The record is a 119-nucleotide RNA from Bacteroides thetaiotaomicron, which matches "Group II catalytic intron D1-D4-2" in Rfam. Rfam links the family to the GO term Group II intron splicing. Group II introns are found in rRNA, tRNA and mRNA of organelles in fungi, plants and protists, and also in mRNA in bacteria. Pairs were carried over by alignment from the consensus structure. The organism belongs to Bacteroides thetaiotaomicron, within Bacteria.
[Rfam]
Nucleotides: 119
Base pairs, nucleotide, nucleotide: 001015002014003013004012005011016041017040018039019038020037021036023034024033025032026031046118048092049091050090051089052088053087054081055080057078058077059076061074063071064070098115099114100113101112102111103110
Number, partner (000 for none) and nucleotide at each position: 001015g002014a003013g004012g005011g006000u007000a008000g009000g010000u011005c012004c013003c014002u015001c016041g017040c018039a019038a020037u021036c022000a023034a024033c025032u026031u027000g028000c029000a030000g031026g032025a033024g034023u035000g036021g037020g038019u039018u040017g041016c042000a043000a044000a045000c046118c047000c048092g049091u050090a051089u052088a053087u054081g055080c056000u057078g058077c059076u060000c061074u062000u063071u064070c065000u066000c067000c068000a069000u070064g071063g072000u073000c074061a075000g076059g077058g078057u079000a080055g081054u082000g083000a084000a085000c086000g087053a088052u089051a090050u091049a092048u093000g094000a095000a096000a097000a098115g099114g100113c101112a102111a103110u104000g105000u106000a107000u108000a109000a110103a111102u112101u113100g114099u115098c116000a117000g118046g119000u